[Rfam]
RNA sequence: UGUGCCUGCACAUGAUGAAAACUAUGUUGGUAGGGACAUCUGAGAAGCUGAUGAAUGCCAACAUAUCUGAGCUGGACA
Numbered sequence: 001u002g003u004g005c006c007u008g009c010a011c012a013u014g015a016u017g018a019a020a021a022c023u024a025u026g027u028u029g030g031u032a033g034g035g036a037c038a039u040c041u042g043a044g045a046a047g048c049u050g051a052u053g054a055a056u057g058c059c060a061a062c063a064u065a066u067c068u069g070a071g072c073u074g075g076a077c078a
Stems, first nucleotide, its partner, number of pairs: 001078003005075001
RNA: Small nucleolar RNA SNORD74
Organism: Dromaius novaehollandiae